[Rfam]
RNA: mir-932 microRNA precursor family
RNA sequence: UACCACUUCAAUUCCGUAGUGCAUUGUAGUCGAUUCGAUGCUACGAUAUAGAACCUGCAAGCACCGCGGGAGUGAGGUGGUUUC
Numbered sequence: 001u002a003c004c005a006c007u008u009c010a011a012u013u014c015c016g017u018a019g020u021g022c023a024u025u026g027u028a029g030u031c032g033a034u035u036c037g038a039u040g041c042u043a044c045g046a047u048a049u050a051g052a053a054c055c056u057g058c059a060a061g062c063a064c065c066g067c068g069g070g071a072g073u074g075a076g077g078u079g080g081u082u083u084c
Stems, first nucleotide, its partner, number of pairs: 006077005013070005020063003024060005